[Rfam]
RNA sequence: GGAGAGGACCGGGUGGCCGCCGGUUCGCCUAGCGCGAACGGGAGGAAAGUCCGGGCACCAGAGGAUAGGGUGGUGGGUAACGCCCACCGGUCGCGAGACUAGGGAAAGUGCCACAGAAAAGAUACCGCCGAUGGGAGCUCUCGGCUUCACAGGUAAGGGUGAAAUGGUGCGGUAAGAGCGCACCAGCAGAUGGGGUGACCCGUUUGGCUUGGUAAACCCCACCCGGUGCAAGGCCAAACAGGAAGCAGAGUCGGUCCGACUCGUUACGACUUCCGGGUAGGCCGCUGGAGGUCACGGGCAACCGUGGUCGUAGAGGAAUGGCCACCAAUCCGCCAAGGCGGAUCACAGAACCCGGCUUAUUGGUCCUCUCUGGAU
Numbered sequence: 001g002g003a004g005a006g007g008a009c010c011g012g013g014u015g016g017c018c019g020c021c022g023g024u025u026c027g028c029c030u031a032g033c034g035c036g037a038a039c040g041g042g043a044g045g046a047a048a049g050u051c052c053g054g055g056c057a058c059c060a061g062a063g064g065a066u067a068g069g070g071u072g073g074u075g076g077g078u079a080a081c082g083c084c085c086a087c088c089g090g091u092c093g094c095g096a097g098a099c100u101a102g103g104g105a106a107a108g109u110g111c112c113a114c115a116g117a118a119a120a121g122a123u124a125c126c127g128c129c130g131a132u133g134g135g136a137g138c139u140c141u142c143g144g145c146u147u148c149a150c151a152g153g154u155a156a157g158g159g160u161g162a163a164a165u166g167g168u169g170c171g172g173u174a175a176g177a178g179c180g181c182a183c184c185a186g187c188a189g190a191u192g193g194g195g196u197g198a199c200c201c202g203u204u205u206g207g208c209u210u211g212g213u214a215a216a217c218c219c220c221a222c223c224c225g226g227u228g229c230a231a232g233g234c235c236a237a238a239c240a241g242g243a244a245g246c247a248g249a250g251u252c253g254g255u256c257c258g259a260c261u262c263g264u265u266a267c268g269a270c271u272u273c274c275g276g277g278u279a280g281g282c283c284g285c286u287g288g289a290g291g292u293c294a295c296g297g298g299c300a301a302c303c304g305u306g307g308u309c310g311u312a313g314a315g316g317a318a319u320g321g322c323c324a325c326c327a328a329u330c331c332g333c334c335a336a337g338g339c340g341g342a343u344c345a346c347a348g349a350a351c352c353c354g355g356c357u358u359a360u361u362g363g364u365c366c367u368c369u370c371u372g373g374a375u
Stems, first nucleotide, its partner, number of pairs: 001371010011360001012326007020042002023039006047358003051355005056228004063262002066259001068224005073087005088102001089100004103219002108217002110213003125158002127154003132149004166184006186208001187206008232283004241274005253267001257263001290309008
Annotation:
The record is a 375-nucleotide RNA from Bythopirellula polymerisocia, which matches "Bacterial RNase P class A" in Rfam. Its family is annotated with ribonuclease P activity, tRNA processing and dimeric ribonuclease P complex in the Gene Ontology. Pairs were carried over by alignment from the consensus structure, which is taken from published work.